[Rfam]
RNA: SAM-I/IV (S-adenosyl methionine) riboswitch aptamer
RNA sequence: GAUGAGCAUCAAGAGCGUCGUCGGGAUGGUCCCGACACCACCAACCGGUCCUCCAUCCGGUGGUUCCCAUCUUGGGGAUGCGGCCCUUAGGGCAAAGGAGGCCAU
Numbered sequence: 001g002a003u004g005a006g007c008a009u010c011a012a013g014a015g016c017g018u019c020g021u022c023g024g025g026a027u028g029g030u031c032c033c034g035a036c037a038c039c040a041c042c043a044a045c046c047g048g049u050c051c052u053c054c055a056u057c058c059g060g061u062g063g064u065u066c067c068c069a070u071c072u073u074g075g076g077g078a079u080g081c082g083g084c085c086c087u088u089a090g091g092g093c094a095a096a097g098g099a100g101g102c103c104a105u
Stems, first nucleotide, its partner, number of pairs: 006081005015039001017038002020036007040064003045060003048054001083093004